[Rfam]
RNA sequence: UUAUGUUAAAAAGCGCCUGAACUAUUCUAAUGGACGGAAACAAGAAUAGUUGACGAGGAAGAGGUUUUAUCGAAAACAUCGGCGGAUGCCUCUCGGUUGCCACACCACAACCGCAAGCUUUGGUAAAAAACAAGAAGGUGACUUCUUGAACAAAAACUAAAGUAUUGGUGCUC
Numbered sequence: 001u002u003a004u005g006u007u008a009a010a011a012a013g014c015g016c017c018u019g020a021a022c023u024a025u026u027c028u029a030a031u032g033g034a035c036g037g038a039a040a041c042a043a044g045a046a047u048a049g050u051u052g053a054c055g056a057g058g059a060a061g062a063g064g065u066u067u068u069a070u071c072g073a074a075a076a077c078a079u080c081g082g083c084g085g086a087u088g089c090c091u092c093u094c095g096g097u098u099g100c101c102a103c104a105c106c107a108c109a110a111c112c113g114c115a116a117g118c119u120u121u122g123g124u125a126a127a128a129a130a131c132a133a134g135a136a137g138g139u140g141a142c143u144u145c146u147u148g149a150a151c152a153a154a155a156a157c158u159a160a161a162g163u164a165u166u167g168g169u170g171c172u173c
Stems, first nucleotide, its partner, number of pairs: 020051008060093005070082004094113006117163007131148007
RNA: glmS glucosamine-6-phosphate activated ribozyme aptamer